[Rfam]
RNA sequence: GCCCCCAAAGAGCUAACACCACAUUGUGAGUGCCGGAGAUAAGCGCCGGAGGGGCAAAUCCC
Numbered sequence: 001g002c003c004c005c006c007a008a009a010g011a012g013c014u015a016a017c018a019c020c021a022c023a024u025u026g027u028g029a030g031u032g033c034c035g036g037a038g039a040u041a042a043g044c045g046c047c048g049g050a051g052g053g054g055c056a057a058a059u060c061c062c
Stems, first nucleotide, its partner, number of pairs: 001055004012031003033049004038044001
Description: This 62-nucleotide RNA from Mangrovibacter sp. MFB070 belongs to the Rfam family "rydB RNA". The match comes from Rfam's covariance-model search (57 bits). NCBI's taxonomy places the organism under Bacteria, Pseudomonadati, Gammaproteobacteria, Enterobacteriaceae, Mangrovibacter. The family's RNA type in Rfam is small RNA. Rfam's curators write: This family consists of several bacterial sequences from E. coli, Shigella flexneri and Salmonella species. This RNA gene was discovered by an RNA screen between the ydiC and ydiH in E. coli. This gene is only 67 bases in length and is composed of a hairpin like structure. The function of this RNA is unknown.